[Rfam]
RNA sequence: CGAAUCCGUGCGGGAGAGUCCCGGGCACCGACCCGGGCGCCGAAGGAGCAAGUUCCUCCCUUGAAUCUCUCAGGCCCCGAUACCGCACGGGCGAG
Numbered sequence: 001c002g003a004a005u006c007c008g009u010g011c012g013g014g015a016g017a018g019u020c021c022c023g024g025g026c027a028c029c030g031a032c033c034c035g036g037g038c039g040c041c042g043a044a045g046g047a048g049c050a051a052g053u054u055c056c057u058c059c060c061u062u063g064a065a066u067c068u069c070u071c072a073g074g075c076c077c078c079g080a081u082a083c084c085g086c087a088c089g090g091g092c093g094a095g
Base pairs, nucleotide, nucleotide: 006090007089008088009087010086011085012084013083020037021036022035023034039075040074041073042071043070046069047068048067052062

Notes
A member of the RNA family "Glycine riboswitch aptamer" from Streptomyces morookaense, 95 nucleotides long. Taxonomically the source falls in Streptomyces (Bacteria, Bacillati, Actinomycetota, Kitasatosporales). About the family: This family represents the bacterial glycine riboswitch. Pairs were carried over by alignment from the consensus structure.